[Rfam]
RNA sequence: CCGUUCUUGUGUUAUUUGCUGAAUUCGCAUUACCGUUCAGUGAUUGUCAGAAAGAACGCAUAUUGAUCCCCAAGCCAGUUUAUCACUCCACAUUGUUGAGCCUAUCAAAUACCCAAGGCUGCUACAAUACUAACCCGCUGGUUACACAC
Numbered sequence: 001c002c003g004u005u006c007u008u009g010u011g012u013u014a015u016u017u018g019c020u021g022a023a024u025u026c027g028c029a030u031u032a033c034c035g036u037u038c039a040g041u042g043a044u045u046g047u048c049a050g051a052a053a054g055a056a057c058g059c060a061u062a063u064u065g066a067u068c069c070c071c072a073a074g075c076c077a078g079u080u081u082a083u084c085a086c087u088c089c090a091c092a093u094u095g096u097u098g099a100g101c102c103u104a105u106c107a108a109a110u111a112c113c114c115a116a117g118g119c120u121g122c123u124a125c126a127a128u129a130c131u132a133a134c135c136c137g138c139u140g141g142u143u144a145c146a147c148a149c
Base pairs, nucleotide, nucleotide: 002058003057004056005055006054007053010049011048016043017042018041019040020039021038022037092128093127094126095125096124099120100119101118102117